Shown here is a 100-nucleotide RNA from Rhinopithecus roxellana, a member of the family "Y RNA".
A search with the family's covariance model found it, with a score of 69 bits.
The source organism's lineage runs through Eukaryota, Gnathostomata, Dipnotetrapodomorpha, Mammalia and Rhinopithecus.
Rfam 15.1 lists 26,986 matches to the family in 650 species.
RNA sequence: GGCUGGUCUGUGUGCAGUGGUGUUUACAACUAAGAUUACUACGAGUUACAUAUUUAUUUGUUCCUUCUCCACUCCCACUGCUUCACUUGACUAGCUUAAU
Numbered sequence: 001g002g003c004u005g006g007u008c009u010g011u012g013u014g015c016a017g018u019g020g021u022g023u024u025u026a027c028a029a030c031u032a033a034g035a036u037u038a039c040u041a042c043g044a045g046u047u048a049c050a051u052a053u054u055u056a057u058u059u060g061u062u063c064c065u066u067c068u069c070c071a072c073u074c075c076c077a078c079u080g081c082u083u084c085a086c087u088u089g090a091c092u093a094g095c096u097u098a099a100u
Base pairs, nucleotide, nucleotide: 001096002095003094004093005092006091007090008089010088014084016079017078018077019076020075022074028062029061030060032058033057